[Rfam]
RNA sequence: AACAUUUACUUUUUUAGUAUUUCUCCAGUAGGUUUCCUCAAGGAGAAAGCCCCC
Numbered sequence: 001a002a003c004a005u006u007u008a009c010u011u012u013u014u015u016a017g018u019a020u021u022u023c024u025c026c027a028g029u030a031g032g033u034u035u036c037c038u039c040a041a042g043g044a045g046a047a048a049g050c051c052c053c054c
Stems, first nucleotide, its partner, number of pairs: 031051005037045003
The family of this 54-nucleotide sequence from Hucho hucho is "U7 small nuclear RNA".
A search with the family's covariance model found it, with a score of 36 bits.